Rfam assigns this 100-nucleotide sequence from Rhizobiales bacterium PAR1 to the family "TPP riboswitch aptamer (THI element)". A search with the family's covariance model found it, with a score of 67 bits. On this family, see Rodionov et al., J Biol Chem 2002: "Comparative genomics of thiamin biosynthesis in procaryotes. New genes and regulatory mechanisms". NCBI's taxonomy places the organism under Bacteria, Pseudomonadati, Pseudomonadota, Alphaproteobacteria, Hyphomicrobiales.
RNA sequence: CCACAAAGCUUGGGGUGCCCGCACGGGCUGAGAGGCAGACCGCCAACCCAUAGAACCUGAUCCGGGUCGUUCCGGCGGAGGAAAGCUUGACCAUGGCGCG
Dot-bracket structure: .....(((((((((..((((....))))......((.....))...)))).....(((...((((......))))...)))..)))))............